This 131-nucleotide sequence from Theropithecus gelada belongs to the Rfam family "Small nucleolar RNA U109". It is annotated as an H/ACA-box small nucleolar RNA. Lineage of the source: Eukaryota > Bilateria > Theria > Catarrhini > Theropithecus. Rfam links the family to the GO terms RNA processing and nucleolus.

[Rfam]
RNA sequence: CUGGAUGGGCAUUCUGCUUCUCUUUAAAGAGCAUGGAUUUAUCCAUACCAUGCAACAUGAAUGAAAUGAGGAGUUUGCAGUGCUGCCAACCUCUUGGUUAAGGUUCUGUGUAGUAUAUUUCUCCUAUAAUA
Numbered sequence: 001c002u003g004g005a006u007g008g009g010c011a012u013u014c015u016g017c018u019u020c021u022c023u024u025u026a027a028a029g030a031g032c033a034u035g036g037a038u039u040u041a042u043c044c045a046u047a048c049c050a051u052g053c054a055a056c057a058u059g060a061a062u063g064a065a066a067u068g069a070g071g072a073g074u075u076u077g078c079a080g081u082g083c084u085g086c087c088a089a090c091c092u093c094u095u096g097g098u099u100a101a102g103g104u105u106c107u108g109u110g111u112a113g114u115a116u117a118u119u120u121c122u123c124c125u126a127u128a129a130u131a
Stems, first nucleotide, its partner, number of pairs: 003053001005051004013035001015033005070124004082111002086108001088105005